The record is a 93-nucleotide RNA sequence from Sarcophilus harrisii, which matches "Small nucleolar RNA SNORD91 family" in Rfam. Pairs were carried over by alignment from the consensus structure. It scores 82 bits against the family's covariance model. Rfam links the family to the GO terms RNA processing and nucleolus.

[Rfam]
RNA sequence: UGGAGAAGCCAGUGAUGGUGGGUGCCAGAAUGUCUGAACCUGUCUGAAGCAUCUUGGUGAUGCGUUCUGUGUGGCUCUGAGGCUUCUUCCUUG
Numbered sequence: 001u002g003g004a005g006a007a008g009c010c011a012g013u014g015a016u017g018g019u020g021g022g023u024g025c026c027a028g029a030a031u032g033u034c035u036g037a038a039c040c041u042g043u044c045u046g047a048a049g050c051a052u053c054u055u056g057g058u059g060a061u062g063c064g065u066u067c068u069g070u071g072u073g074g075c076u077c078u079g080a081g082g083c084u085u086c087u088u089c090c091u092u093g
Stems, first nucleotide, its partner, number of pairs: 004087007

Rfam classes the family as a C/D-box small nucleolar RNA. The source organism's lineage runs through Eukaryota, Metazoa, Vertebrata, Amniota and Sarcophilus.